RNA: Small nucleolar RNA SNORA81
RNA sequence: UUUACCUUGUUUAAGCUCUGUACUAAAAUUGCAGAAACCAGCAUUAAAUCUCAGUAUUUGUAAUAAAGCUAACAGAGAAAAACCCAAGAAAAUAAAACAACCCAAACCACUGUAUCAGAUAGAAGAAAAACUGAUCUGAACUUCUUCUGAAGGCCAGGAUACUUUGUUUCAAGAUUUGGUACAAUAAUA
Numbered sequence: 001u002u003u004a005c006c007u008u009g010u011u012u013a014a015g016c017u018c019u020g021u022a023c024u025a026a027a028a029u030u031g032c033a034g035a036a037a038c039c040a041g042c043a044u045u046a047a048a049u050c051u052c053a054g055u056a057u058u059u060g061u062a063a064u065a066a067a068g069c070u071a072a073c074a075g076a077g078a079a080a081a082a083c084c085c086a087a088g089a090a091a092a093u094a095a096a097a098c099a100a101c102c103c104a105a106a107c108c109a110c111u112g113u114a115u116c117a118g119a120u121a122g123a124a125g126a127a128a129a130a131c132u133g134a135u136c137u138g139a140a141c142u143u144c145u146u147c148u149g150a151a152g153g154c155c156a157g158g159a160u161a162c163u164u165u166g167u168u169u170c171a172a173g174a175u176u177u178g179g180u181a182c183a184a185u186a187a188u189a
Stems, first nucleotide, its partner, number of pairs: 018077002021074001024071002029066003034058002037055002041051001043049002111183009133160001135158004
Dot-bracket structure: .................((.(..((...(((..((.((..(.((...)).)..)).)).....)))...))..).)).................................(((((((((.............(.((((................)))).)..............)))))))))......